[Rfam]
RNA sequence: CGGGGUCAAAUUGACUCUAGUAGGGAGUCCGGUUUUUAACAGGCGACUCCCUAACGGAGUCAGAUUGACCCCUUU
Numbered sequence: 001c002g003g004g005g006u007c008a009a010a011u012u013g014a015c016u017c018u019a020g021u022a023g024g025g026a027g028u029c030c031g032g033u034u035u036u037u038a039a040c041a042g043g044c045g046a047c048u049c050c051c052u053a054a055c056g057g058a059g060u061c062a063g064a065u066u067g068a069c070c071c072c073u074u075u
Stems, first nucleotide, its partner, number of pairs: 011063008021053009